Rfam assigns this 76-nucleotide sequence from Alligator mississippiensis to the family "Mammalian CPEB3 ribozyme". Pairs were carried over by alignment from the consensus structure, which is taken from published work. The match comes from Rfam's covariance-model search (36 bits). The organism belongs to Alligator, within Eukaryota. The mammalian CPEB3 ribozyme is a self cleaving RNA located in the second intron of the CPEB3 gene which belongs to a family of genes regulating messenger RNA polyadenylation. This ribozyme is highly conserved and found only in mammals. The CPEB3 ribozyme is structurally and biochemically related to the human hepatitis delta virus (HDV) ribozyme and the HDV ribozyme is proposed to have arisen from the human transcriptome. There is currently only one other known self cleaving ribozyme in mammals, the CoTC motif.
RNA sequence: UUCGCAAGUUUGUGGCCAUAGCAGAAGUACUGAUGGUGCAGCCCUGUCACAUUGCAACAAAUCUGCGAAUUUUGCU
Numbered sequence: 001u002u003c004g005c006a007a008g009u010u011u012g013u014g015g016c017c018a019u020a021g022c023a024g025a026a027g028u029a030c031u032g033a034u035g036g037u038g039c040a041g042c043c044c045u046g047u048c049a050c051a052u053u054g055c056a057a058c059a060a061a062u063c064u065g066c067g068a069a070u071u072u073u074g075c076u
Base pairs, nucleotide, nucleotide: 012044014043015042016041020076021075022074023073024072025071026070027039028038029037048065049064051062052061053060